Small Cajal body specific RNA 8: a 131-nucleotide RNA sequence from Musca domestica.

[Rfam]
RNA sequence: CUGAAUCACGAUACAGCAUUAUGAAGGCAAAUUAUCCUAUAAUGCUCACAAAAGGUUCACAUAACAAAUUAUUCUUUGAUGAGCCUGAAUGGUUGAGUUUCAUUUCAGGAACAGAUACGGAAUAUACAAAC
Numbered sequence: 001c002u003g004a005a006u007c008a009c010g011a012u013a014c015a016g017c018a019u020u021a022u023g024a025a026g027g028c029a030a031a032u033u034a035u036c037c038u039a040u041a042a043u044g045c046u047c048a049c050a051a052a053a054g055g056u057u058c059a060c061a062u063a064a065c066a067a068a069u070u071a072u073u074c075u076u077u078g079a080u081g082a083g084c085c086u087g088a089a090u091g092g093u094u095g096a097g098u099u100u101c102a103u104u105u106c107a108g109g110a111a112c113a114g115a116u117a118c119g120g121a122a123u124a125u126a127c128a129a130a131c
Base pairs, nucleotide, nucleotide: 002059003058004057005056006055007054015046016045017044018043022039023038026037027036070124071123072122073121074120075119084109085108088105089104091103

NCBI's taxonomy places the organism under Eukaryota, Opisthokonta, Brachycera, Calyptratae, Musca. scaRNAs are a specific class of small nuclear RNAs which localise to the Cajal bodies and guide the modification of RNA polymerase II transcribed spliceosomal RNAs U1, U2, U4, U5 and U12.